Rfam assigns this 157-nucleotide sequence from Schistocephalus solidus to the family "U1 spliceosomal RNA". Taxonomically the source falls in Schistocephalus (Eukaryota, Spiralia, Rhabditophora, Eucestoda). Rfam classes the family as a spliceosomal small nuclear RNA. U1 is a small nuclear RNA (snRNA) component of the spliceosome (involved in pre-mRNA splicing).
RNA sequence: AAACUUUACUGGCAUCGGGUUCAGGGUGAUUAGCAAUGCUCUGACCCCAGGUGGAGGUUUGCCAUUGCAUUCUGGCAUGUUGAAGCCUGCGACGGACUCUAAUCGGGUUCGCUCGGGUGUGUCGUUUUUGCCACUGGGGAGCCCUUAGGCCUCCUCU
Numbered sequence: 001a002a003a004c005u006u007u008a009c010u011g012g013c014a015u016c017g018g019g020u021u022c023a024g025g026g027u028g029a030u031u032a033g034c035a036a037u038g039c040u041c042u043g044a045c046c047c048c049a050g051g052u053g054g055a056g057g058u059u060u061g062c063c064a065u066u067g068c069a070u071u072c073u074g075g076c077a078u079g080u081u082g083a084a085g086c087c088u089g090c091g092a093c094g095g096a097c098u099c100u101a102a103u104c105g106g107g108u109u110c111g112c113u114c115g116g117g118u119g120u121g122u123c124g125u126u127u128u129u130g131c132c133a134c135u136g137g138g139g140a141g142c143c144c145u146u147a148g149g150c151c152u153c154c155u156c157u
Stems, first nucleotide, its partner, number of pairs: 012120004017047005023042005049088004056081003060077004090115003093111001094109002097106002136156005144148001